[Rfam]
RNA sequence: CUGAAAUGAUGAAAGUUAGCCAAAUCUUAUUAUAACAUGCUCCUCUACAUGUAAGCUUUAUCUGUGCCUUUGGUGAAGAUCUCUUCUUUGCCAGGCACAAGAGUAGAUACGUAGAGUUGAAGUUUGCGUUAUUGAUGAUAAAAUAGAGAUUGGGAACUUACUGAUCAGA
Dot-bracket structure: ((((................................................................................................................................................................)))).

The family of this 169-nucleotide sequence from Triticum aestivum is "small nucleolar RNA snoR127". Rfam 15.1 lists 273 matches to the family in 170 species. The family's consensus secondary structure was predicted with RNAalifold. NCBI's taxonomy places the organism under Eukaryota, Euphyllophyta, Liliopsida, commelinids, Triticum. A search with the family's covariance model found it, with a score of 37 bits. By type it is a C/D-box small nucleolar RNA.